[Rfam]
RNA sequence: CUUUGUAAUAGCAAAUAUUACAAGGCGGAAGGAG
Number, nucleotide and partner (000 for none) at each position: 001c025002u024003u023004u022005g021006u020007a019008a018009u017010a016011g000012c000013a000014a000015a000016u010017a009018u008019u007020a006021c005022a004023a003024g002025g001026c000027g000028g000029a000030a000031g000032g000033a000034g000
RNA: L31-Firmicutes ribosomal protein leader